[Rfam]
RNA sequence: AACCAAUGAUUAAAAGAUUCUGCCAAAUGAAUUCAGCUGAUUAUAACCCUUUACCGUUCCAUUUUUGUAUGAGGUU
Number, nucleotide and partner (000 for none) at each position: 001a076002a075003c074004c073005a000006a000007u000008g000009a000010u000011u000012a000013a000014a000015a000016g000017a000018u000019u000020c000021u000022g000023c000024c000025a000026a000027a000028u000029g000030a000031a000032u000033u000034c000035a000036g000037c000038u000039g000040a000041u000042u000043a000044u000045a000046a000047c000048c000049c000050u000051u000052u000053a000054c000055c000056g000057u000058u000059c000060c000061a000062u000063u000064u000065u000066u000067g000068u000069a000070u000071g000072a000073g004074g003075u002076u001